[Rfam]
RNA sequence: UAAGUAGAUCGUCUUAUCGCUUCAAUUUAUUGAAGAGGAAAGUCCGGACACCAUAGAGUAGCAUAGCGGAUAACAUCCGUCCAGCGUGAGUUGAGGACAAGUGCAACAGAAAGCAAGUACAGUUAGGCUGUAGUGAAACCAGGUAAACUCUAUGCGGUGAAAUGCCAUGUAUAUUGAAAUUUUAAAGUGACUCGCUUUAUUUCAAGGGGUAGGCAGCUCGAGCUAUAAAGUAAUUUAUAGUCUAGAUAAAUGAUAAGAGCUUUUUUAAAGUACAAAAUCCGGCUUAUAGAUCUACUUAUUUU
Numbered sequence: 001u002a003a004g005u006a007g008a009u010c011g012u013c014u015u016a017u018c019g020c021u022u023c024a025a026u027u028u029a030u031u032g033a034a035g036a037g038g039a040a041a042g043u044c045c046g047g048a049c050a051c052c053a054u055a056g057a058g059u060a061g062c063a064u065a066g067c068g069g070a071u072a073a074c075a076u077c078c079g080u081c082c083a084g085c086g087u088g089a090g091u092u093g094a095g096g097a098c099a100a101g102u103g104c105a106a107c108a109g110a111a112a113g114c115a116a117g118u119a120c121a122g123u124u125a126g127g128c129u130g131u132a133g134u135g136a137a138a139c140c141a142g143g144u145a146a147a148c149u150c151u152a153u154g155c156g157g158u159g160a161a162a163u164g165c166c167a168u169g170u171a172u173a174u175u176g177a178a179a180u181u182u183u184a185a186a187g188u189g190a191c192u193c194g195c196u197u198u199a200u201u202u203c204a205a206g207g208g209g210u211a212g213g214c215a216g217c218u219c220g221a222g223c224u225a226u227a228a229a230g231u232a233a234u235u236u237a238u239a240g241u242c243u244a245g246a247u248a249a250a251u252g253a254u255a256a257g258a259g260c261u262u263u264u265u266u267a268a269a270g271u272a273c274a275a276a277a278u279c280c281g282g283c284u285u286a287u288a289g290a291u292c293u294a295c296u297u298a299u300u301u302u
Stems, first nucleotide, its partner, number of pairs: 001298010011287001012258007020035006040285003044282005049159004056193004061155005066080005081095001082093004096150002101148002103144002118132006163215004174205005184198005222241008
RNA: Bacterial RNase P class A